[Rfam]
RNA sequence: UAGAGAAGGGCGCAUGGAGGAUGCCUAGGCUCUCAGAGGCGAUGAAGGACGCGAUAAGCUGCGAUAAGCUGCGGGGAUGGGCACAUACCACUCGAUCCGCAGAUCUCCGAAUGGGGCAACCCGGCUGGUUGAAGACCAGUCACCUGUUUACAGGGGCGAACGCGGGGAACUGAAACAUCUAAGUACCCGCAGGAAGAGAAAAUAACAAUGAUUCCCCAAGUAGUGGCGAGCGAACGGGGAAGAGCCCAAACCACAGUCGUUACGGCGACCGUGGGGUUGUAGGACCACGACACGAGACUGGAAAUUGAAGCUUAACUACCUGGGAAGGUAGGCCAGAGAGGGUGACAGCCCCGUCAGCGUAAGCUUUCCAGCUCCAGUGGUAUCCUGAGUAGGGCGGGACCAGAGGAAUCCCGUCUGAAUCCGCCGGUACCAUCCGGCAAGGCUAAAUACUCCUGAGAGACCGAUAGUGAACCAGUACCGUGAGGGAAAGGUGAAAAGUACCCCGAAUAGGGGGGUGAAAUAGAACCUGAAACCAUGCGCCUACAAG
Numbered sequence: 001u002a003g004a005g006a007a008g009g010g011c012g013c014a015u016g017g018a019g020g021a022u023g024c025c026u027a028g029g030c031u032c033u034c035a036g037a038g039g040c041g042a043u044g045a046a047g048g049a050c051g052c053g054a055u056a057a058g059c060u061g062c063g064a065u066a067a068g069c070u071g072c073g074g075g076g077a078u079g080g081g082c083a084c085a086u087a088c089c090a091c092u093c094g095a096u097c098c099g100c101a102g103a104u105c106u107c108c109g110a111a112u113g114g115g116g117c118a119a120c121c122c123g124g125c126u127g128g129u130u131g132a133a134g135a136c137c138a139g140u141c142a143c144c145u146g147u148u149u150a151c152a153g154g155g156g157c158g159a160a161c162g163c164g165g166g167g168a169a170c171u172g173a174a175a176c177a178u179c180u181a182a183g184u185a186c187c188c189g190c191a192g193g194a195a196g197a198g199a200a201a202a203u204a205a206c207a208a209u210g211a212u213u214c215c216c217c218a219a220g221u222a223g224u225g226g227c228g229a230g231c232g233a234a235c236g237g238g239g240a241a242g243a244g245c246c247c248a249a250a251c252c253a254c255a256g257u258c259g260u261u262a263c264g265g266c267g268a269c270c271g272u273g274g275g276g277u278u279g280u281a282g283g284a285c286c287a288c289g290a291c292a293c294g295a296g297a298c299u300g301g302a303a304a305u306u307g308a309a310g311c312u313u314a315a316c317u318a319c320c321u322g323g324g325a326a327g328g329u330a331g332g333c334c335a336g337a338g339a340g341g342g343u344g345a346c347a348g349c350c351c352c353g354u355c356a357g358c359g360u361a362a363g364c365u366u367u368c369c370a371g372c373u374c375c376a377g378u379g380g381u382a383u384c385c386u387g388a389g390u391a392g393g394g395c396g397g398g399a400c401c402a403g404a405g406g407a408a409u410c411c412c413g414u415c416u417g418a419a420u421c422c423g424c425c426g427g428u429a430c431c432a433u434c435c436g437g438c439a440a441g442g443c444u445a446a447a448u449a450c451u452c453c454u455g456a457g458a459g460a461c462c463g464a465u466a467g468u469g470a471a472c473c474a475g476u477a478c479c480g481u482g483a484g485g486g487a488a489a490g491g492u493g494a495a496a497a498g499u500a501c502c503c504c505g506a507a508u509a510g511g512g513g514g515g516u517g518a519a520a521u522a523g524a525a526c527c528u529g530a531a532a533c534c535a536u537g538c539g540c541c542u543a544c545a546a547g
Stems, first nucleotide, its partner, number of pairs: 008542010023527001024491002028462002030459007037451002039157002047108003050063003069102007078090003113122003123141007143154004161192001162190005172179002202209002212447001213240005223231002243444004251274004256269002281386003285380004296373001298371007306363001310358003316331005334338001340352003392416008423438005478485002501513004

The family of this 547-nucleotide part of an RNA from Rufibacter ruber is "Bacterial large subunit ribosomal RNA". On this family, see Yusupov et al., Science 2001: "Crystal structure of the ribosome at 5.5 A resolution".